[Rfam]
RNA sequence: AAAACGGCUCUUUUUAGAGCCACAAAUAUUUUCAUAUGUAAGAGAG
Numbered sequence: 001a002a003a004a005c006g007g008c009u010c011u012u013u014u015u016a017g018a019g020c021c022a023c024a025a026a027u028a029u030u031u032u033c034a035u036a037u038g039u040a041a042g043a044g045a046g
Base pairs, nucleotide, nucleotide: 006021007020008019009018010017011016

Rfam assigns this 46-nucleotide RNA sequence from Diabrotica virgifera to the family "Histone 3' UTR stem-loop". It is annotated as a cis-regulatory element. About the family: The mRNAs of metazoan histone genes lack a poly-A tail. 3' end processing occurs at a site between a highly conserved stem-loop (modelled by this family) and a purine rich region around 20 nts downstream (the histone downstream element, or HDE). The stem-loop is bound by a 31 kDa stem-loop binding protein (SLBP - also termed the histone hairpin binding protein, or HBP). Together with U7 snRNA binding of the HDE, SLBP binding nucleate s the formation of the processing complex. The histone 3' UTR stem-loop is also involved in nucleocytoplasmic transport of the mRNA, and in stability regulation and translation efficiency in the cytoplasm. Lineage of the source: Eukaryota > Eumetazoa > Bilateria > Endopterygota > Diabrotica virgifera. The match comes from Rfam's covariance-model search (37 bits).